S. pyogenes small RNA Spy491738: an 87-nucleotide RNA from Streptococcus ictaluri.
The organism belongs to Streptococcus ictaluri, within Bacteria.
The sequence is in the family's curated seed alignment.
[Rfam]
RNA sequence: AAGUCUGUUUCAGAAAACAGAAACCCAGGUCAAGUAAGUGUUCUCACUUACAAUAACACAGUUAAUGAUGGGGCAACUCAAAGUUAA
Numbered sequence: 001a002a003g004u005c006u007g008u009u010u011c012a013g014a015a016a017a018c019a020g021a022a023a024c025c026c027a028g029g030u031c032a033a034g035u036a037a038g039u040g041u042u043c044u045c046a047c048u049u050a051c052a053a054u055a056a057c058a059c060a061g062u063u064a065a066u067g068a069u070g071g072g073g074c075a076a077c078u079c080a081a082a083g084u085u086a087a
Stems, first nucleotide, its partner, number of pairs: 004021007034051006062087005069080004